[Rfam]
This 108-nucleotide sequence belongs to the Rfam family "DUF3800-I RNA".
About the family: Actinobacteria, Firmicutes, Fusobacteria, Proteobacteria (1 example), Tenericutes (2 examples).
The sequence is in the family's curated seed alignment.
It is annotated as a small RNA.

RNA sequence: UAUAAGUGCAGGUAGGAAUACACUGCAUACUCGCGUCACCGAACUAAUUGUUUAAGCGAUAUGCAAUAUCGUCGGCCGCGGGGACGCCUUCGGGCGUUUUUUUUUGCU
Numbered sequence: 001u002a003u004a005a006g007u008g009c010a011g012g013u014a015g016g017a018a019u020a021c022a023c024u025g026c027a028u029a030c031u032c033g034c035g036u037c038a039c040c041g042a043a044c045u046a047a048u049u050g051u052u053u054a055a056g057c058g059a060u061a062u063g064c065a066a067u068a069u070c071g072u073c074g075g076c077c078g079c080g081g082g083g084a085c086g087c088c089u090u091c092g093g094g095c096g097u098u099u100u101u102u103u104u105u106g107c108u
Base pairs, nucleotide, nucleotide: 007027008026009025010024011023012021013020014019030082031081032080033079034078035077039075040074041073042052043051044050056072057071058070059069060068061067083098084097085096086095087094088093